[Rfam]
RNA sequence: UUGCACCUUGUAUCGAAGGACAUGCCUCGUUCUGAUGGCAUGGCCAUUUUCGAGGAUGCGUAAAGGAAUAGCUGUUAAUUCAGUAAGCGGCCAGACAACCGUUGGGAUAGAUCCACAGUUGUUGCGGUUUUUCUCUCCGCUCUCAACUACUAAAUCUUUCCCACAUUU
Number, nucleotide and partner (000 for none) at each position: 001u000002u060003g059004c058005a057006c000007c000008u000009u052010g051011u000012a000013u000014c000015g049016a048017a047018g045019g044020a000021c042022a041023u040024g039025c038026c037027u000028c000029g000030u000031u000032c000033u000034g000035a000036u000037g026038g025039c024040a023041u022042g021043g000044c019045c018046a000047u017048u016049u015050u000051c010052g009053a000054g000055g000056a000057u005058g004059c003060g002061u000062a000063a000064a000065g000066g000067a000068a000069u000070a000071g000072c000073u000074g000075u000076u000077a000078a000079u000080u000081c000082a000083g000084u000085a000086a000087g000088c000089g000090g000091c000092c000093a000094g000095a000096c000097a000098a000099c000100c000101g000102u000103u000104g162105g161106g160107a159108u000109a157110g156111a155112u000113c000114c000115a000116c000117a000118g000119u000120u000121g143122u000123u000124g140125c139126g138127g137128u000129u000130u000131u000132u000133c000134u000135c000136u000137c127138c126139g125140c124141u000142c000143u121144c000145a000146a000147c000148u000149a000150c000151u000152a000153a000154a000155u111156c110157u109158u000159u107160c106161c105162c104163a000164c000165a000166u000167u000168u000

Shown here is a 168-nucleotide RNA sequence from Arabidopsis thaliana, a member of the family "small nucleolar RNA snoR143". The match comes from Rfam's covariance-model search (103 bits). It is annotated as an H/ACA-box small nucleolar RNA. The literature on the family includes a 2009 paper in Nucleic Acids Res by Chen and Wu, "Mining small RNA sequencing data: a new approach to identify small nucleolar RNAs in Arabidopsis". Rfam links the family to the GO terms nucleolus and RNA processing. Taxonomically the source falls in Arabidopsis (Eukaryota, Streptophyta, Magnoliopsida, eudicotyledons).